[Rfam]
RNA sequence: AAGACAUAAAGGCAAAGCUGUUGAAAAGCAGCGGCGCAAAGCUACAGGGGCUAAGGCGGACAACCGCUAUGCCAGCCAGUUGCCGGA
Numbered sequence: 001a002a003g004a005c006a007u008a009a010a011g012g013c014a015a016a017g018c019u020g021u022u023g024a025a026a027a028g029c030a031g032c033g034g035c036g037c038a039a040a041g042c043u044a045c046a047g048g049g050g051c052u053a054a055g056g057c058g059g060a061c062a063a064c065c066g067c068u069a070u071g072c073c074a075g076c077c078a079g080u081u082g083c084c085g086g087a
Stems, first nucleotide, its partner, number of pairs: 012037002017032006040081004047077002049073003056067004